RNA sequence: GUUUUGCGUUGUUUAUGUCCAACAUUUGACUGUCUGUCUAACUUAAAAAAAUUGUUAUGAUUAGUAUUUUUAUGUAUUACUAGAUGAUAAAACAUUAAUAAUGCUUUAUGGUGAGACUAUCUUUUUUUAAUUAUUUUUUCAUAUAAUUUUUUAAAUAAGACGUACAGUCAAACGUUGGACACGGAAAAUCAUAACUGCACUUAAA
Numbered sequence: 001g002u003u004u005u006g007c008g009u010u011g012u013u014u015a016u017g018u019c020c021a022a023c024a025u026u027u028g029a030c031u032g033u034c035u036g037u038c039u040a041a042c043u044u045a046a047a048a049a050a051a052u053u054g055u056u057a058u059g060a061u062u063a064g065u066a067u068u069u070u071u072a073u074g075u076a077u078u079a080c081u082a083g084a085u086g087a088u089a090a091a092a093c094a095u096u097a098a099u100a101a102u103g104c105u106u107u108a109u110g111g112u113g114a115g116a117c118u119a120u121c122u123u124u125u126u127u128u129a130a131u132u133a134u135u136u137u138u139u140c141a142u143a144u145a146a147u148u149u150u151u152u153a154a155a156u157a158a159g160a161c162g163u164a165c166a167g168u169c170a171a172a173c174g175u176u177g178g179a180c181a182c183g184g185a186a187a188a189u190c191a192u193a194a195c196u197g198c199a200c201u202u203a204a205a
Stems, first nucleotide, its partner, number of pairs: 018179006025172009035162005041156001